[Rfam]
RNA sequence: AAGCCUGAAGAGAGAGGCAGGGUCUGAUCCACAUCCUCUGUGAAAGCUGUUGAUCAGCCGUUGCCUCUCUCUUUAUCUCCA
Numbered sequence: 001a002a003g004c005c006u007g008a009a010g011a012g013a014g015a016g017g018c019a020g021g022g023u024c025u026g027a028u029c030c031a032c033a034u035c036c037u038c039u040g041u042g043a044a045a046g047c048u049g050u051u052g053a054u055c056a057g058c059c060g061u062u063g064c065c066u067c068u069c070u071c072u073u074u075a076u077c078u079c080c081a
Base pairs, nucleotide, nucleotide: 008073009072010071011070012069013068014067015066016065017064018063019062020061022059024057025056026055027054028053029052032049033048035046
RNA: mir-574 microRNA precursor family